[Rfam]
RNA sequence: GGGCAAAAGUUGGGCAAGACUCUGGCAAAACUUGGAUUUAUGCUGCGCCAAAGUUUAACCCAAGUUUGACCCAACUCUUGUCA
Numbered sequence: 001g002g003g004c005a006a007a008a009g010u011u012g013g014g015c016a017a018g019a020c021u022c023u024g025g026c027a028a029a030a031c032u033u034g035g036a037u038u039u040a041u042g043c044u045g046c047g048c049c050a051a052a053g054u055u056u057a058a059c060c061c062a063a064g065u066u067u068g069a070c071c072c073a074a075c076u077c078u079u080g081u082c083a
Stems, first nucleotide, its partner, number of pairs: 002082005008076007017067005024060002028056006